About this RNA: This 74-nucleotide RNA sequence from Methanothermus fervidus belongs to the Rfam family "tRNA". Gene Ontology term of the family: triplet codon-amino acid adaptor activity. Its Rfam clan is "tRNA clan". The family's consensus secondary structure is taken from published work. NCBI's taxonomy places the organism under Archaea, Methanobacteriati, Methanobacteriota, Methanobacteriales, Methanothermus. Transfer RNA (tRNA) molecules are approximately 80 nucleotides in length. The sequence is in the family's curated seed alignment.

RNA sequence: GGGCCCAUAGCUCAGCCUGGGAGAGCGCCGCCCUUGCAAGGCGGAGGCCCCGGGUUCAAAUCCCGGUGGGUCCA
Numbered sequence: 001g002g003g004c005c006c007a008u009a010g011c012u013c014a015g016c017c018u019g020g021g022a023g024a025g026c027g028c029c030g031c032c033c034u035u036g037c038a039a040g041g042c043g044g045a046g047g048c049c050c051c052g053g054g055u056u057c058a059a060a061u062c063c064c065g066g067u068g069g070g071u072c073c074a
Base pairs, nucleotide, nucleotide: 001073002072003071004070005069006068007067010026011025012024013023028044029043030042031041032040050066051065052064053063054062